[Rfam]
Nucleotides: 076
Stems, first nucleotide, its partner, number of pairs: 003074002006071003010067011022056009032046001
Number, partner (000 for none) and nucleotide at each position: 001000u002000g003074g004073u005000u006071u007070u008069c009000c010067a011066g012065g013064c014063u015062u016061g017060u018059u019058u020057u021000a022056a023055g024054u025053u026052g027051c028050c029049u030048g031000c032046g033000a034000c035000g036000g037000g038000u039000a040000c041000u042000u043000u044000g045000a046032c047000a048030c049029a050028g051027g052026c053025a054024g055023c056022u057020a058019a059018a060017g061016c062015a063014a064013g065012c066011c067010u068000g069008g070007g071006a072000c073004g074003c075000u076000u
This 76-nucleotide RNA sequence from Gouania willdenowi belongs to the Rfam family "mir-1788 microRNA precursor family". Gene Ontology terms of the family: RISC complex and miRNA-mediated post-transcriptional gene silencing. The base pairs follow the family's consensus structure, which was predicted with RNAalifold.